[Rfam]
RNA sequence: CACUUCAUCUUUCAUCUUUGCACACCCGAAUUCCGCAGGGUUUUUCAAGUACCAGAGGUAGCCGGUUGCCGCGUGACGAAGGGAACAAAUCGACCAAAGAAGCGAGGACGGUCAUGCGAUCUGCCCGGAUUGCACUGAUGCUGACGAUCGUGCUUGCCGGUCCGUAUGCGUCGAACUUCGCGUAUGCGCAGCGCCCCGAGCAGGGCGCAUCGUCGCGCAA
Numbered sequence: 001c002a003c004u005u006c007a008u009c010u011u012u013c014a015u016c017u018u019u020g021c022a023c024a025c026c027c028g029a030a031u032u033c034c035g036c037a038g039g040g041u042u043u044u045u046c047a048a049g050u051a052c053c054a055g056a057g058g059u060a061g062c063c064g065g066u067u068g069c070c071g072c073g074u075g076a077c078g079a080a081g082g083g084a085a086c087a088a089a090u091c092g093a094c095c096a097a098a099g100a101a102g103c104g105a106g107g108a109c110g111g112u113c114a115u116g117c118g119a120u121c122u123g124c125c126c127g128g129a130u131u132g133c134a135c136u137g138a139u140g141c142u143g144a145c146g147a148u149c150g151u152g153c154u155u156g157c158c159g160g161u162c163c164g165u166a167u168g169c170g171u172c173g174a175a176c177u178u179c180g181c182g183u184a185u186g187c188g189c190a191g192c193g194c195c196c197c198g199a200g201c202a203g204g205g206c207g208c209a210u211c212g213u214c215g216c217g218c219a220a
Stems, first nucleotide, its partner, number of pairs: 017089004025083003031079002034075003039070003045065002050060004091217002094215001100183001102181004106176001109173001111169002118162004123157002128151001133146001136143001186213003191208005
RNA: Burkholderia sRNA 19
Organism: Burkholderia dolosa